RNA: mir-684 microRNA precursor family
Organism: Mus musculus
RNA sequence: GUAGGGCAAUCUGUCUUUAAGUAGGGAUAAAUUACUCUUGAACAAAAUGAUCCUAGAUAGUUUUCCCUUCAAGUCAAGUGUCUUG
Numbered sequence: 001g002u003a004g005g006g007c008a009a010u011c012u013g014u015c016u017u018u019a020a021g022u023a024g025g026g027a028u029a030a031a032u033u034a035c036u037c038u039u040g041a042a043c044a045a046a047a048u049g050a051u052c053c054u055a056g057a058u059a060g061u062u063u064u065c066c067c068u069u070c071a072a073g074u075c076a077a078g079u080g081u082c083u084u085g
Stems, first nucleotide, its partner, number of pairs: 002085006012076002015073003023068005029063006036057003040052002043049002